Rfam assigns this 337-nucleotide sequence from Niallia nealsonii to the family "Group I catalytic intron". The match comes from Rfam's covariance-model search (78 bits). Rfam describes the family as follows. Group I catalytic introns are large self-splicing ribozymes. They catalyse their own excision from mRNA, tRNA and rRNA precursors in a wide range of organisms. The core secondary structure consists of 9 paired regions (P1-P9). These fold to essentially two domains - the P4-P6 domain (formed from the stacking of P5, P4, P6 and P6a helices) and the P3-P9 domain (formed from the P8, P3, P7 and P9 helices). The secondary structure mark-up for this family represents only this conserved core. Group I catalytic introns often have long ORFs inserted in loop regions. The window size for this search is chosen to minimise search time and catch the small examples. A larger window size will find more matches. The literature on the family includes a 1990 paper in Annu Rev Biochem by Cech, "Self-splicing of group I introns".
RNA sequence: UUUACAACUUCUUCGAUAAUUGAAAGAGGGCGUCUUACUUGGCAACGAGUAAGAGUAUAACUGGGUGAAUUGCUGGGACUUCCUAAAGCUUCAUCAACCAAAGCGAAACUGGAAACGGUAGGCGUAAAGGUUUGACAAUGAUGGAUAUAUUACAAUGGAUAAUCAGCAGCCAAGCUCCUGUGAGGAAACUCUGGAGAAGGUUCAACGACUAGGGAAUACGGUCUAAGGCAAACGCUAUGACUAUGAAUCUCGUAGGGCAAUAAAAUUUGUUCGAAGUGCCCAGCUCCUAAUAAAUUUAGGAUGAAGAUAUAGUCUAUUCUAUGAUCGAAAGACAUAG
Numbered sequence: 001u002u003u004a005c006a007a008c009u010u011c012u013u014c015g016a017u018a019a020u021u022g023a024a025a026g027a028g029g030g031c032g033u034c035u036u037a038c039u040u041g042g043c044a045a046c047g048a049g050u051a052a053g054a055g056u057a058u059a060a061c062u063g064g065g066u067g068a069a070u071u072g073c074u075g076g077g078a079c080u081u082c083c084u085a086a087a088g089c090u091u092c093a094u095c096a097a098c099c100a101a102a103g104c105g106a107a108a109c110u111g112g113a114a115a116c117g118g119u120a121g122g123c124g125u126a127a128a129g130g131u132u133u134g135a136c137a138a139u140g141a142u143g144g145a146u147a148u149a150u151u152a153c154a155a156u157g158g159a160u161a162a163u164c165a166g167c168a169g170c171c172a173a174g175c176u177c178c179u180g181u182g183a184g185g186a187a188a189c190u191c192u193g194g195a196g197a198a199g200g201u202u203c204a205a206c207g208a209c210u211a212g213g214g215a216a217u218a219c220g221g222u223c224u225a226a227g228g229c230a231a232a233c234g235c236u237a238u239g240a241c242u243a244u245g246a247a248u249c250u251c252g253u254a255g256g257g258c259a260a261u262a263a264a265a266u267u268u269g270u271u272c273g274a275a276g277u278g279c280c281c282a283g284c285u286c287c288u289a290a291u292a293a294a295u296u297u298a299g300g301a302u303g304a305a306g307a308u309a310u311a312g313u314c315u316a317u318u319c320u321a322u323g324a325u326c327g328a329a330a331g332a333c334a335u336a337g
Stems, first nucleotide, its partner, number of pairs: 007033002010030004039048003061283004066278002071168006081159003169201002176194002205315001207314005285301006321335003325332002